[Rfam]
Record summary: Rfam assigns this 103-nucleotide RNA sequence from Limimaricola hongkongensis to the family "TPP riboswitch aptamer (THI element)". NCBI's taxonomy places the organism under Bacteria, Pseudomonadati, Pseudomonadota, Paracoccaceae, Limimaricola hongkongensis. Its family is annotated with thiamine pyrophosphate binding in the Gene Ontology. The match comes from Rfam's covariance-model search (74 bits).

Nucleotides: 103
Base pairs, nucleotide, nucleotide: 006091007090008089009088010087011053012052013051014050017032018031019030020029021028039046040045059084060083061082062081065078066077067076068075
Number, partner (000 for none) and nucleotide at each position: 001000c002000c003000g004000a005000a006091u007090c008089c009088g010087u011053u012052g013051g014050g015000g016000u017032g018031c019030c020029c021028c022000c023000g024000u025000c026000g027000a028021g029020g030019g031018g032017c033000u034000g035000a036000g037000a038000g039046g040045c041000g042000a043000c044000u045040g046039c047000c048000g049000a050014c051013c052012c053011a054000u055000c056000g057000a058000a059084c060083c061082u062081g063000a064000u065078c066077c067076g068075g069000u070000u071000a072000a073000g074000a075068c076067c077066g078065g079000c080000g081062u082061a083060g084059g085000g086000a087010a088009c089008g090007g091006a092000g093000a094000c095000a096000g097000g098000g099000u100000c101000g102000a103000c